[Rfam]
RNA sequence: AAUGAAAAAGCCAAACCUGUUGUGAAGCAGGGACGGAAAGUCAUGGGACUUGAUAAAAUUAAGUUCGCCAGAUCGCCGCGU
Numbered sequence: 001a002a003u004g005a006a007a008a009a010g011c012c013a014a015a016c017c018u019g020u021u022g023u024g025a026a027g028c029a030g031g032g033a034c035g036g037a038a039a040g041u042c043a044u045g046g047g048a049c050u051u052g053a054u055a056a057a058a059u060u061a062a063g064u065u066c067g068c069c070a071g072a073u074c075g076c077c078g079c080g081u
Stems, first nucleotide, its partner, number of pairs: 001081001003078002011036002016031006034067001040073003044070003047065003
RNA: c-di-GMP-I-GGC riboswitch aptamer